[Rfam]
radC RNA: a 136-nucleotide RNA sequence from Castellaniella defragrans. NCBI's taxonomy places the organism under Bacteria, Pseudomonadota, Betaproteobacteria, Burkholderiales, Castellaniella defragrans. The family's RNA type in Rfam is cis-regulatory element.
RNA sequence: AAGCUGCCCGCAUGUUCGCUGAUUCGUCAGCACAUGCCAGCAGCCAGGGUUUCAAGCUGCCGCGGGUCUCUCCCGCGUUGCCCACCAGUCCGCAUCGCAUCAAGUCUGCGGACGCGCGUCCCCAUGACGCUGAUGC
Dot-bracket structure: ..........(((((..(((((....))))))))))...(((((..[.[......)))))((((((.....)))))).].]..........................(((.....(((((.....)))))...)))
Annotation: Rfam 15.1 lists 500 matches to the family in 142 species.